RNA: Glutamine-II riboswitch aptamer
RNA sequence: UCACGUUGAGCCCCUUAGGGCUGCAGUUCGUUCCACGCCAGGCAACGGGGGCGUGGG
Number, nucleotide and partner (000 for none) at each position: 001u000002c000003a000004c047005g046006u045007u044008g043009a000010g021011c020012c019013c018014c000015u000016u000017a000018g013019g012020g011021c010022u000023g000024c000025a000026g000027u000028u000029c000030g000031u000032u057033c056034c055035a054036c053037g052038c050039c049040a000041g000042g000043c008044a007045a006046c005047g004048g000049g039050g038051g000052c037053g036054u035055g034056g033057g032